BsrF: a 119-nucleotide RNA sequence from Heyndrickxia coagulans.
[Rfam]
RNA sequence: GCGAUGAGCUGAAUUGCAUAAGCCGGCAAGGCAACCUUUUUGGAAUGCACAAUGUGGAGUGCAAGCCUUAGCCGCCGCAAGAAAGAUUGGAAAAAAGCGCCCCGGACCGGGCGCUUUUU
Numbered sequence: 001g002c003g004a005u006g007a008g009c010u011g012a013a014u015u016g017c018a019u020a021a022g023c024c025g026g027c028a029a030g031g032c033a034a035c036c037u038u039u040u041u042g043g044a045a046u047g048c049a050c051a052a053u054g055u056g057g058a059g060u061g062c063a064a065g066c067c068u069u070a071g072c073c074g075c076c077g078c079a080a081g082a083a084a085g086a087u088u089g090g091a092a093a094a095a096a097g098c099g100c101c102c103c104g105g106a107c108c109g110g111g112c113g114c115u116u117u118u119u
Stems, first nucleotide, its partner, number of pairs: 014080004024074004029068004035043002046063002049060002092119011

Rfam classes the family as a small RNA. On this family, see Saito et al., Gene 2008: "Novel small RNA-encoding genes in the intergenic regions of Bacillus subtilis".